Shown here is a 79-nucleotide sequence from Anolis carolinensis, a member of the family "mir-129 microRNA precursor family". On this family, see Lagos-Quintana et al., Curr Biol 2002: "Identification of tissue-specific microRNAs from mouse".
RNA sequence: CUGGGUCUUUUUGCGGUCUGGGCUUUCUGGGUCUGUCCAACCCCCGUAUCAGAAAGCCCUUACCCCAAAAAGCAUCCGG
Numbered sequence: 001c002u003g004g005g006u007c008u009u010u011u012u013g014c015g016g017u018c019u020g021g022g023c024u025u026u027c028u029g030g031g032u033c034u035g036u037c038c039a040a041c042c043c044c045c046g047u048a049u050c051a052g053a054a055a056g057c058c059c060u061u062a063c064c065c066c067a068a069a070a071a072g073c074a075u076c077c078g079g
Stems, first nucleotide, its partner, number of pairs: 007072007015064003020059004025054001027052002